[Rfam]
RNA sequence: GCCGAGCUUAGCAACGCAAGCUUGUAACCCAAGUGGGGGCUUUAAGGUGUUGGAACACUGGCCAAUCCUGUGUGGUCGGGCCUGUUGAUGUAAUUUACUGGUCCGCCCAUUCCAAGUUGGGAGUUGGGCCACGUUGCUUGGGCGAAAGCCUAAUGGUUACGUGGUCUCUCUAAAGAGGAGGGAACCGCGUCAGGCUGGUCUCACAGAGCAGCGACUACCUCCCGCUCUUAGCAGUGGAAGGAUAAUGGGCUGGUGCUUCACGAGCCCAUCAUAAAACCAUACAGCAUAGGUUGAGCUGAACCAAAUUUA
Numbered sequence: 001g002c003c004g005a006g007c008u009u010a011g012c013a014a015c016g017c018a019a020g021c022u023u024g025u026a027a028c029c030c031a032a033g034u035g036g037g038g039g040c041u042u043u044a045a046g047g048u049g050u051u052g053g054a055a056c057a058c059u060g061g062c063c064a065a066u067c068c069u070g071u072g073u074g075g076u077c078g079g080g081c082c083u084g085u086u087g088a089u090g091u092a093a094u095u096u097a098c099u100g101g102u103c104c105g106c107c108c109a110u111u112c113c114a115a116g117u118u119g120g121g122a123g124u125u126g127g128g129c130c131a132c133g134u135u136g137c138u139u140g141g142g143c144g145a146a147a148g149c150c151u152a153a154u155g156g157u158u159a160c161g162u163g164g165u166c167u168c169u170c171u172a173a174a175g176a177g178g179a180g181g182g183a184a185c186c187g188c189g190u191c192a193g194g195c196u197g198g199u200c201u202c203a204c205a206g207a208g209c210a211g212c213g214a215c216u217a218c219c220u221c222c223c224g225c226u227c228u229u230a231g232c233a234g235u236g237g238a239a240g241g242a243u244a245a246u247g248g249g250c251u252g253g254u255g256c257u258u259c260a261c262g263a264g265c266c267c268a269u270c271a272u273a274a275a276a277c278c279a280u281a282c283a284g285c286a287u288a289g290g291u292u293g294a295g296c297u298g299a300a301c302c303a304a305a306u307u308u309a
Base pairs, nucleotide, nucleotide: 001040002039003038004023005022006021007020008019009018028037029036030035043309044308045307046306050304051303052302053301056298057297058295059294061291062290063289065287066286068284069283070282071281072280073279074278075277076276078267079266080265081264083262084261085260087259088258090256093254098253099252100251101250102249103248104247105246107241108240110239111238112237113236114235116232117231118230119229120228121227122226123225124224126167127166128165129164130163131162132161133160134159136157137156138153139152140151141150142149143148168175169174177222178221179220180219181218188213189212190211195206196205197204
The record is a 309-nucleotide RNA from Tripterygium wilfordii, which matches "Plant signal recognition particle RNA" in Rfam. The family's consensus secondary structure is taken from published work. NCBI's taxonomy places the organism under Eukaryota, Streptophyta, Embryophyta, Mesangiospermae, Tripterygium. It scores 217 bits against the family's covariance model.